RNA sequence: UGAUGACAGGGUUAAAAAGUCCAAAGCCGAACGUGCUUGCACGAUGAGGAUUAGGACUUUGGAACCCGCAGGACGCGAGCACGAAGCGUGAAAACGCGAAGUGCGAGGGCCCUAGGAUUGCGAGAGCUGCAUAAGCAGCGGAGCAAUCCGUGUCAUCA
Numbered sequence: 001u002g003a004u005g006a007c008a009g010g011g012u013u014a015a016a017a018a019g020u021c022c023a024a025a026g027c028c029g030a031a032c033g034u035g036c037u038u039g040c041a042c043g044a045u046g047a048g049g050a051u052u053a054g055g056a057c058u059u060u061g062g063a064a065c066c067c068g069c070a071g072g073a074c075g076c077g078a079g080c081a082c083g084a085a086g087c088g089u090g091a092a093a094a095c096g097c098g099a100a101g102u103g104c105g106a107g108g109g110c111c112c113u114a115g116g117a118u119u120g121c122g123a124g125a126g127c128u129g130c131a132u133a134a135g136c137a138g139c140g141g142a143g144c145a146a147u148c149c150g151u152g153u154c155a156u157c158a
Base pairs, nucleotide, nucleotide: 001158002157003156004155005154006153007152010066011065012064013063016060017059018058019057020056021055022054024052025051027049028048031045032043033042034041035040070113071112072111074109076107079104080103081102082101086097087096088095089094115149116148117147118146119145120144121143126139127138128137129136
RNA: Clostridiales-1 RNA